[Rfam]
RNA sequence: AUUAACACUUGAUAACACUCGUUAACACGAAUAUCUAUGAACACAGUCAAGUUUUUUAUUAGUAUAGCCAAGUAGGUUAGAUAACACUAAUCUCAUGACAUUUCUCCUUUCAACCGAAACUGUUUUACAGAUUCGUUGUUCAACGCAAUGACAACCCCAAUCAUUGCGUUUUUUUUGCUUUAAAUAUUUA
Numbered sequence: 001a002u003u004a005a006c007a008c009u010u011g012a013u014a015a016c017a018c019u020c021g022u023u024a025a026c027a028c029g030a031a032u033a034u035c036u037a038u039g040a041a042c043a044c045a046g047u048c049a050a051g052u053u054u055u056u057u058a059u060u061a062g063u064a065u066a067g068c069c070a071a072g073u074a075g076g077u078u079a080g081a082u083a084a085c086a087c088u089a090a091u092c093u094c095a096u097g098a099c100a101u102u103u104c105u106c107c108u109u110u111c112a113a114c115c116g117a118a119a120c121u122g123u124u125u126u127a128c129a130g131a132u133u134c135g136u137u138g139u140u141c142a143a144c145g146c147a148a149u150g151a152c153a154a155c156c157c158c159a160a161u162c163a164u165u166g167c168g169u170u171u172u173u174u175u176u177g178c179u180u181u182a183a184a185u186a187u188u189u190a
Base pairs, nucleotide, nucleotide: 014053015052016051019049021047022046023045026039027038065190066189067188070185073182074180075179076178077177078097079096080094083091115135116134117133118132120130121129122128123127143169144168145167146166147165148164149163150162151161
Rfam assigns this 190-nucleotide sequence from Acinetobacter junii to the family "Aar sRNA". Rfam's curators put it in the seed alignment. The source organism's lineage runs through Bacteria, Pseudomonadati, Gammaproteobacteria, Moraxellales and Acinetobacter junii.